[Rfam]
RNA sequence: UAAACACACACGGGGUGCUGGUUUUCCGGCUGAGAGCGGAGUUUUCCGCAACCCGCAUAACCUGAUCUGGAUAAUACCAGCGUAGGGAUAGAGUAAAUAGCAUUUU
Numbered sequence: 001u002a003a004a005c006a007c008a009c010a011c012g013g014g015g016u017g018c019u020g021g022u023u024u025u026c027c028g029g030c031u032g033a034g035a036g037c038g039g040a041g042u043u044u045u046c047c048g049c050a051a052c053c054c055g056c057a058u059a060a061c062c063u064g065a066u067c068u069g070g071a072u073a074a075u076a077c078c079a080g081c082g083u084a085g086g087g088a089u090a091g092a093g094u095a096a097a098u099a100g101c102a103u104u105u106u
Stems, first nucleotide, its partner, number of pairs: 006094002009091001011055004017030005037048004061086004067080004
Record summary:
The family of this 106-nucleotide RNA sequence from Acetivibrio saccincola is "TPP riboswitch aptamer (THI element)". The base pairs follow the family's consensus structure, which is taken from published work. The source organism's lineage runs through Bacteria, Bacillati, Clostridia, Acetivibrionales and Acetivibrio.